[Rfam]
RNA sequence: CUCUGUUCCAGAAAAAAUGGUUCAGGGCGGGAG
Numbered sequence: 001c002u003c004u005g006u007u008c009c010a011g012a013a014a015a016a017a018u019g020g021u022u023c024a025g026g027g028c029g030g031g032a033g
Stems, first nucleotide, its partner, number of pairs: 001027005008020003